Rfam assigns this 66-nucleotide RNA sequence to the family "DUF3800-VIII RNA".
Bacteroidetes, Cyanobacteria, Firmicutes, Planctomycetes (1 example), Proteobacteria, Tenericutes (1 example).
Pairs were carried over by alignment from the consensus structure, which is taken from published work.
Rfam classes the family as a small RNA.
It is one of the family's seed sequences.
RNA sequence: CUAACCCUAUAUUAUGCGAAGUCUUAGGUUUUACCUGAGAGGUUUAUGUAGCAUAAAUGGGGAUUU
Dot-bracket structure: ..(.((((((.((((((....((((((((...))))))))..........)))))))))))).)..
Numbered sequence: 001c002u003a004a005c006c007c008u009a010u011a012u013u014a015u016g017c018g019a020a021g022u023c024u025u026a027g028g029u030u031u032u033a034c035c036u037g038a039g040a041g042g043u044u045u046a047u048g049u050a051g052c053a054u055a056a057a058u059g060g061g062g063a064u065u066u
Stems, first nucleotide, its partner, number of pairs: 003064001005062006012056006022040008